[Rfam]
Description
Rfam assigns this 143-nucleotide sequence from Raphanus sativus to the family "Small nucleolar RNA snoR145". The family's consensus secondary structure was predicted with mfold. It is annotated as an H/ACA-box small nucleolar RNA.
RNA sequence: AAGCGAAGGACCCAGCAGGGAAGCGAGUAUACUCAUGGAAUGAGGCUUCUCUAACAAUAUUAUCAAACCUUCGUAGAUAGAGUUUCUCCAAGAGAUCGUUGACAAUCUGUUAUUGGAUUGUCGUGAGUUCUUGGUGUAUAGUU
Numbered sequence: 001a002a003g004c005g006a007a008g009g010a011c012c013c014a015g016c017a018g019g020g021a022a023g024c025g026a027g028u029a030u031a032c033u034c035a036u037g038g039a040a041u042g043a044g045g046c047u048u049c050u051c052u053a054a055c056a057a058u059a060u061u062a063u064c065a066a067a068c069c070u071u072c073g074u075a076g077a078u079a080g081a082g083u084u085u086c087u088c089c090a091a092g093a094g095a096u097c098g099u100u101g102a103c104a105a106u107c108u109g110u111u112a113u114u115g116g117a118u119u120g121u122c123g124u125g126a127g128u129u130c131u132u133g134g135u136g137u138a139u140a141g142u143u
Stems, first nucleotide, its partner, number of pairs: 003074007011020003025051003032044005088134006101122002104119006
Lineage of the source: Eukaryota > Pentapetalae > malvids > Brassicaceae > Raphanus. It scores 109 bits against the family's covariance model. On this family, see Chen and Wu, Nucleic Acids Res 2009: "Mining small RNA sequencing data: a new approach to identify small nucleolar RNAs in Arabidopsis".